Background
Rfam assigns this 101-nucleotide RNA sequence from Oncorhynchus kisutch to the family "Vault RNA". The organism belongs to Oncorhynchus, within Eukaryota. The base pairs follow the family's consensus structure, which is taken from published work.

RNA sequence: GCGCUGGUGUAGCUCAGUGUUUACGUCAAAAACUUUCUCUAUCAGAAUUGUUCUGUACCUCUGCAAAGGGGUUCGAACCACGGGCGCUGUCCAGUGUUUUG
Number, nucleotide and partner (000 for none) at each position: 001g000002c096003g095004c094005u093006g092007g091008u000009g000010u000011a000012g085013c084014u083015c082016a000017g081018u080019g079020u000021u000022u000023a000024c000025g000026u076027c075028a000029a073030a000031a000032a000033c000034u000035u000036u000037c000038u000039c000040u000041a000042u000043c000044a000045g000046a000047a000048u000049u000050g000051u000052u000053c000054u000055g000056u000057a000058c000059c000060u000061c000062u000063g000064c000065a000066a000067a000068g000069g000070g000071g000072u000073u029074c000075g027076a026077a000078c000079c019080a018081c017082g015083g014084g013085c012086g000087c000088u000089g000090u000091c007092c006093a005094g004095u003096g002097u000098u000099u000100u000101g000